[Rfam]
RNA sequence: AGAUAUAAUCCAUUAGUUUUAUAUUUUACCCAUUUAGGGCUGAUUUAUUACUACACACAGCAGUGCAACAUCUGUCAGUACUUCUGGUGCUU
Numbered sequence: 001a002g003a004u005a006u007a008a009u010c011c012a013u014u015a016g017u018u019u020u021a022u023a024u025u026u027u028a029c030c031c032a033u034u035u036a037g038g039g040c041u042g043a044u045u046u047a048u049u050a051c052u053a054c055a056c057a058c059a060g061c062a063g064u065g066c067a068a069c070a071u072c073u074g075u076c077a078g079u080a081c082u083u084c085u086g087g088u089g090c091u092u
Stems, first nucleotide, its partner, number of pairs: 006050004012044010054089003058086003062082005068075002
Dot-bracket structure: .....((((..((((((((((.............))))))))))..))))...(((.(((.(((((.((....))..))))).))))))...

This 92-nucleotide RNA from Escherichia coli belongs to the Rfam family "ES056 sRNA". It is one of the family's seed sequences. Rfam classes the family as a small RNA. About the family: Differentially expressed under several chemical stress and fermentation conditions. A reference for the family is Rau et al. (2015), "Differential expression of small RNAs under chemical stress and fed-batch fermentation in E. coli", BMC Genomics.